RNA: SAM riboswitch aptamer (S box leader)
Organism: Sporomusa malonica
RNA sequence: AGUUCAUCAAGAGCUGGCUGAGGGAAUGGCCCUAUGAAGCUGCGGCAACCAUCGUAUACUACGAACGGUGCCAAAUCCAACAGGAUUAUAUCCUGGCAGAUGAAGA
Numbered sequence: 001a002g003u004u005c006a007u008c009a010a011g012a013g014c015u016g017g018c019u020g021a022g023g024g025a026a027u028g029g030c031c032c033u034a035u036g037a038a039g040c041u042g043c044g045g046c047a048a049c050c051a052u053c054g055u056a057u058a059c060u061a062c063g064a065a066c067g068g069u070g071c072c073a074a075a076u077c078c079a080a081c082a083g084g085a086u087u088a089u090a091u092c093c094u095g096g097c098a099g100a101u102g103a104a105g106a
Stems, first nucleotide, its partner, number of pairs: 003104006013043001015042004022032003027079003044072004049068002052064003076098001081095006